[Rfam]
RNA sequence: ACCCGCCCGAUUCAUGGAGGUCAAGGCCGUCAUGACUGAGCGGAAAUUCAAUCUGGUCGUGCCGCUGCCUCACAAAGGCACCGACAUGCGCACAAAGGAAACCCCCGUCACAUUGCCGGCCAGGUCCUGCGCAGUUUCCCCGUUGACUAAUCGACCGGGCGACGUAGAUAGCACGAUGAGUCC
Numbered sequence: 001a002c003c004c005g006c007c008c009g010a011u012u013c014a015u016g017g018a019g020g021u022c023a024a025g026g027c028c029g030u031c032a033u034g035a036c037u038g039a040g041c042g043g044a045a046a047u048u049c050a051a052u053c054u055g056g057u058c059g060u061g062c063c064g065c066u067g068c069c070u071c072a073c074a075a076a077g078g079c080a081c082c083g084a085c086a087u088g089c090g091c092a093c094a095a096a097g098g099a100a101a102c103c104c105c106c107g108u109c110a111c112a113u114u115g116c117c118g119g120c121c122a123g124g125u126c127c128u129g130c131g132c133a134g135u136u137u138c139c140c141c142g143u144u145g146a147c148u149a150a151u152c153g154a155c156c157g158g159g160c161g162a163c164g165u166a167g168a169u170a171g172c173a174c175g176a177u178g179a180g181u182c183c
Stems, first nucleotide, its partner, number of pairs: 004042003012035006019028003057176006063083002066080005087133005096128004102124002105119003109115001135162002138159003142155005
The family of this 183-nucleotide sequence from Neopusillimonas aestuarii is "RT-15 RNA". The base pairs follow the family's consensus structure, which is taken from published work.